[Rfam]
RNA sequence: CCGUGCUAGGUGGGGAGGUAGCGGUGCCCUGUACCCGCAAUCCGCUCUAGCGGGACUGAACUCCUUCCCUAGGCUGUCCAAUUGUAGGGUCUGUCUUUUGUAAGUGGUGUUGACGUUUGGGUCCUACGCAAUGGGAAUCCAUGAACCAUGUCAGGUCCGGAAGGAAGCAGCAUUAAGUGGACGCUCCCAUGUGCCGUAGGGUUGCCUGAACCGAGCUAACUGCAAAAGCAACGCCUAUGGUUGGCUGUCGAAGGAAGGUGCACGG
Numbered sequence: 001c002c003g004u005g006c007u008a009g010g011u012g013g014g015g016a017g018g019u020a021g022c023g024g025u026g027c028c029c030u031g032u033a034c035c036c037g038c039a040a041u042c043c044g045c046u047c048u049a050g051c052g053g054g055a056c057u058g059a060a061c062u063c064c065u066u067c068c069c070u071a072g073g074c075u076g077u078c079c080a081a082u083u084g085u086a087g088g089g090u091c092u093g094u095c096u097u098u099u100g101u102a103a104g105u106g107g108u109g110u111u112g113a114c115g116u117u118u119g120g121g122u123c124c125u126a127c128g129c130a131a132u133g134g135g136a137a138u139c140c141a142u143g144a145a146c147c148a149u150g151u152c153a154g155g156u157c158c159g160g161a162a163g164g165a166a167g168c169a170g171c172a173u174u175a176a177g178u179g180g181a182c183g184c185u186c187c188c189a190u191g192u193g194c195c196g197u198a199g200g201g202u203u204g205c206c207u208g209a210a211c212c213g214a215g216c217u218a219a220c221u222g223c224a225a226a227a228g229c230a231a232c233g234c235c236u237a238u239g240g241u242u243g244g245c246u247g248u249c250g251a252a253g254g255a256a257g258g259u260g261c262a263c264g265g
Stems, first nucleotide, its partner, number of pairs: 001265006009057003012030004017025001019023001034054005063258006072249003076245001079243010092230002096227006104220002106217003115211008123200006129191002132189005138181005148173004156165003
Shown here is a 265-nucleotide RNA from Fervidibacillus halotolerans, a member of the family "Bacterial large signal recognition particle RNA".
About the family: The signal recognition particle (SRP) is a universally conserved ribonucleoprotein involved in the co-translational targeting of proteins to membranes.
Rfam links the family to the GO terms SRP-dependent cotranslational protein targeting to membrane, signal sequence recognition and signal recognition particle, plasma membrane targeting.
By type it is a non-coding RNA gene.